[Rfam]
Nucleotides: 099
Base pairs, nucleotide, nucleotide: 004093005092006091007090008089010086011085012084013083014082015081018077019076020075022074023073024072025069026068027067028066029065030064031063036061037060038059039058044053045052046051
Number, partner (000 for none) and nucleotide at each position: 001000g002000g003000g004093a005092g006091g007090u008089c009000g010086g011085c012084g013083g014082u015081g016000g017000a018077c019076g020075u021000c022074g023073c024072c025069a026068c027067u028066c029065g030064u031063c032000g033000a034000u035000c036061u037060g038059g039058u040000c041000a042000g043000g044053u045052c046051c047000g048000g049000a050000a051046g052045g053044a054000a055000g056000c057000a058039g059038c060037c061036a062000a063031g064030g065029c066028g067027g068026g069025u070000c071000g072024g073023g074022c075020a076019c077018g078000g079000g080000u081015c082014a083013u084012c085011g086010u087000c088000c089008g090007g091006c092005c093004u094000c095000c096000c097000a098000c099000c

Shown here is a 99-nucleotide RNA sequence from Prosthecodimorpha hirschii, a member of the family "Bacterial small signal recognition particle RNA". The signal recognition particle (SRP) is a universally conserved ribonucleoprotein involved in the co-translational targeting of proteins to membranes. Pairs were carried over by alignment from the consensus structure, which is taken from published work. It scores 54 bits against the family's covariance model. The family's RNA type in Rfam is non-coding RNA gene. Taxonomically the source falls in Prosthecodimorpha (Bacteria, Pseudomonadati, Pseudomonadota, Ancalomicrobiaceae).